[Rfam]
RNA sequence: UUUUUGGAGAGUUUGAUCCUGGCUCAGAACGAACGCUGGCGGCGUGGAUUAGGCAUGCAAGUCGAACGAUCCCUUUCGCAAGAGGGGGAUAGUGGCAAACGGGUGAGUAAUGCGUAGGUAAUUUUCCUAUAGGUUCGGGAUAACCUGUUGAAAGAUGGGCUAAUACCGGAUAAGACCACAGUUCAUAAAGAAUAGCGGUUAAAGAUGGGGAUCUUGAAAAUAGACCUAUCUCCUAUAGAUAAGCCUGCGUCCUAUCAGCUUGUUGGUGGGGUAAUGGCCUACCAAGGCGAUGACGGGUAGCUGGUCUGAGAGGAUGGUCAGCCACACUGGGACUGAGACACUGCCCAGACUCCUACGGGAGGCUGCAGUCGAGGAUCUUUUGCAAUGCCCGCAAGGGUGACAAUGCGACGCCGCGUGAGCGAUGAAGGCCUUCGGGUUGUAAAGCUCUGUCAGCGGGGAUGAAUGCAAAUGGGUUAAUAACCUAUUUGUGCGACGGUACCCGCAGAGGAAGCCACGGCUAACUCCGUGCCAGCAGCCGCGGUAAUACGGAGGUGGCAAGCGUUGUUCGGAAUUACUG
Numbered sequence: 001u002u003u004u005u006g007g008a009g010a011g012u013u014u015g016a017u018c019c020u021g022g023c024u025c026a027g028a029a030c031g032a033a034c035g036c037u038g039g040c041g042g043c044g045u046g047g048a049u050u051a052g053g054c055a056u057g058c059a060a061g062u063c064g065a066a067c068g069a070u071c072c073c074u075u076u077c078g079c080a081a082g083a084g085g086g087g088g089a090u091a092g093u094g095g096c097a098a099a100c101g102g103g104u105g106a107g108u109a110a111u112g113c114g115u116a117g118g119u120a121a122u123u124u125u126c127c128u129a130u131a132g133g134u135u136c137g138g139g140a141u142a143a144c145c146u147g148u149u150g151a152a153a154g155a156u157g158g159g160c161u162a163a164u165a166c167c168g169g170a171u172a173a174g175a176c177c178a179c180a181g182u183u184c185a186u187a188a189a190g191a192a193u194a195g196c197g198g199u200u201a202a203a204g205a206u207g208g209g210g211a212u213c214u215u216g217a218a219a220a221u222a223g224a225c226c227u228a229u230c231u232c233c234u235a236u237a238g239a240u241a242a243g244c245c246u247g248c249g250u251c252c253u254a255u256c257a258g259c260u261u262g263u264u265g266g267u268g269g270g271g272u273a274a275u276g277g278c279c280u281a282c283c284a285a286g287g288c289g290a291u292g293a294c295g296g297g298u299a300g301c302u303g304g305u306c307u308g309a310g311a312g313g314a315u316g317g318u319c320a321g322c323c324a325c326a327c328u329g330g331g332a333c334u335g336a337g338a339c340a341c342u343g344c345c346c347a348g349a350c351u352c353c354u355a356c357g358g359g360a361g362g363c364u365g366c367a368g369u370c371g372a373g374g375a376u377c378u379u380u381u382g383c384a385a386u387g388c389c390c391g392c393a394a395g396g397g398u399g400a401c402a403a404u405g406c407g408a409c410g411c412c413g414c415g416u417g418a419g420c421g422a423u424g425a426a427g428g429c430c431u432u433c434g435g436g437u438u439g440u441a442a443a444g445c446u447c448u449g450u451c452a453g454c455g456g457g458g459a460u461g462a463a464u465g466c467a468a469a470u471g472g473g474u475u476a477a478u479a480a481c482c483u484a485u486u487u488g489u490g491c492g493a494c495g496g497u498a499c500c501c502g503c504a505g506a507g508g509a510a511g512c513c514a515c516g517g518c519u520a521a522c523u524c525c526g527u528g529c530c531a532g533c534a535g536c537c538g539c540g541g542u543a544a545u546a547c548g549g550a551g552g553u554g555g556c557a558a559g560c561g562u563u564g565u566u567c568g569g570a571a572u573u574a575c576u577g
Stems, first nucleotide, its partner, number of pairs: 009025005027567004032563006039414006045407002052370003056367003061096003066093002069090009103325003112250008122242002127238007135169004144159006175199003179195001181193004204230006251297003258288003263285008300322004304315004327348005350361004380403003386399005417447004427438004451508001453503005461494001466488007511556005522551005532539002